[Rfam]
Nucleotides: 061
Stems, first nucleotide, its partner, number of pairs: 017045009027035001
Number, partner (000 for none) and nucleotide at each position: 001000a002000u003000a004000u005000a006000u007000a008000c009000c010000c011000a012000a013000c014000a015000a016000a017045g018044g019043a020042g021041u022040a023039g024038u025037u026000a027035u028000c029000c030000a031000a032000c033000c034000a035027g036000g037025a038024g039023c040022u041021a042020c043019u044018u045017u046000a047000u048000c049000a050000u051000a052000u053000u054000c055000u056000g057000a058000a059000u060000u061000c